[Rfam]
RNA sequence: CGGCCGGCACGCGACUGGCGAUAGGCGCAACCCUUUUCAGGUGCAUUGCGCUGACGUGGAACACCACUGGGAAGCGUGCCGCCCGCGGUCUUGAGCAGGCGUUCAGCCGUUCGCCUGGGCAGCCCUU
Numbered sequence: 001c002g003g004c005c006g007g008c009a010c011g012c013g014a015c016u017g018g019c020g021a022u023a024g025g026c027g028c029a030a031c032c033c034u035u036u037u038c039a040g041g042u043g044c045a046u047u048g049c050g051c052u053g054a055c056g057u058g059g060a061a062c063a064c065c066a067c068u069g070g071g072a073a074g075c076g077u078g079c080c081g082c083c084c085g086c087g088g089u090c091u092u093g094a095g096c097a098g099g100c101g102u103u104c105a106g107c108c109g110u111u112c113g114c115c116u117g118g119g120c121a122g123c124c125c126u127u
Stems, first nucleotide, its partner, number of pairs: 003083001005081008015071002017115005056067004104122001106120003
A member of the RNA family "ZMP/ZTP riboswitch aptamer (pfl RNA motif)" from Variovorax sp. MHTC-1, 127 nucleotides long.
Pairs were carried over by alignment from the consensus structure, which is taken from published work.